RNA sequence: UAGAACUAAUAAACCGACAGGUGGAAUGAAGGGGUAACGCCCUAAAACGCCUGCUCUAAUCCUCCGAACGGCGAAAGUAGAUGAUUAAGCGUCGAAAUGGUCGUAAGCUCGGUGAAGUCGGUUGAGAGCAUACCCUAAAGACACUUUUUCUAAGUGGUACAGGAAUAGCGAACCAGAGGUGGUCGAGUAUGUGAUAGACCGGGAGUCUAUGGA
Numbered sequence: 001u002a003g004a005a006c007u008a009a010u011a012a013a014c015c016g017a018c019a020g021g022u023g024g025a026a027u028g029a030a031g032g033g034g035u036a037a038c039g040c041c042c043u044a045a046a047a048c049g050c051c052u053g054c055u056c057u058a059a060u061c062c063u064c065c066g067a068a069c070g071g072c073g074a075a076a077g078u079a080g081a082u083g084a085u086u087a088a089g090c091g092u093c094g095a096a097a098u099g100g101u102c103g104u105a106a107g108c109u110c111g112g113u114g115a116a117g118u119c120g121g122u123u124g125a126g127a128g129c130a131u132a133c134c135c136u137a138a139a140g141a142c143a144c145u146u147u148u149u150c151u152a153a154g155u156g157g158u159a160c161a162g163g164a165a166u167a168g169c170g171a172a173c174c175a176g177a178g179g180u181g182g183u184c185g186a187g188u189a190u191g192u193g194a195u196a197g198a199c200c201g202g203g204a205g206u207c208u209a210u211g212g213a
Stems, first nucleotide, its partner, number of pairs: 018053006031043004054205004064112004068104005074098001078094001080092001119201005128192006134163003141158002169185002172183004